[Rfam]
Nucleotides: 364
Base pairs, nucleotide, nucleotide: 001364002363003362004361009359010358011357012356013355014354015353016352018350019349020348035059036058037057038056039055044049060102061101062100064098065097066096067095068094069093070092071091103107115343116342117341118340119339120338121337122335123334126140127139128138143178144177145176146175147174148173149172150171151168155164156163157162181330182329183328184327186260187259188258191257192256193253194252195251196250197249200248201247202246206242207241212236213235214234215233218229219228220227221226261279262278263277264276265275266274280284290317300316301315302314303313304312305311
Number, partner (000 for none) and nucleotide at each position: 001364c002363g003362a004361g005000u006000g007000a008000a009359c010358c011357a012356u013355g014354g015353u016352u017000a018350a019349g020348g021000a022000a023000c024000u025000c026000g027000g028000c029000a030000a031000a032000a033000u034000a035059c036058c037057u038056c039055c040000g041000u042000a043000a044049c045000u046000u047000c048000g049044g050000g051000a052000g053000a054000a055039g056038g057037a058036g059035g060102g061101c062100c063000a064098g065097u066096u067095g068094a069093c070092g071091u072000g073000a074000c075000g076000g077000a078000a079000c080000u081000u082000g083000c084000u085000u086000c087000c088000c089000g090000a091071g092070c093069g094068u095067u096066g097065g098064c099000c100062g101061g102060c103107c104000g105000c106000a107103g108000a109000g110000a111000c112000c113000a114000g115343c116342g117341a118340g119339a120338a121337g122335c123334g124000a125000c126140u127139g128138u129000u130000u131000a132000c133000u134000a135000a136000a137000a138128a139127c140126a141000c142000a143178g144177g145176u146175c147174c148173g149172u150171g151168c152000g153000a154000a155164g156163u157162a158000g159000c160000a161000a162157u163156a164155c165000g166000a167000u168151g169000u170000a171150u172149a173148c174147g175146g176145a177144c178143u179000g180000a181330c182329g183328c184327c185000u186260g187259c188258c189000c190000g191257g192256u193253g194252c195251u196250g197249g198000a199000a200248c201247g202246u203000u204000a205000a206242g207241g208000g209000g210000a211000c212236g213235g214234g215233u216000u217000a218229g219228c220227a221226c222000u223000u224000c225000g226221g227220u228219g229218c230000g231000a232000a233215g234214c235213u236212c237000a238000g239000a240000a241207c242206u243000u244000a245000a246202g247201c248200g249197c250196c251195a252194g253193u254000a255000a256192a257191c258188g259187g260186c261279g262278g263277u264276g265275g266274u267000a268000a269000c270000u271000a272000u273000a274266a275265c276264c277263a278262u279261c280284c281000u282000a283000a284280g285000g286000u287000a288000g289000c290317g291000a292000a293000a294000u295000u296000c297000c298000u299000u300316g301315u302314c303313g304312g305311g306000u307000a308000a309000g310000u311305u312304c313303c314302g315301a316300c317290c318000u319000g320000c321000a322000c323000g324000a325000a326000u327184g328183g329182c330181g331000u332000a333000a334123c335122g336000a337121c338120u339119u340118c341117u342116c343115g344000a345000c346000u347000g348020u349019c350018u351000c352016a353015a354014c355013c356012a357011u358010g359009g360000a361004c362003u363002c364001g
Annotation: This 364-nucleotide part of an RNA from Jatrophihabitans endophyticus belongs to the Rfam family "Bacterial large subunit ribosomal RNA". On this family, see Yusupov et al., Science 2001: "Crystal structure of the ribosome at 5.5 A resolution".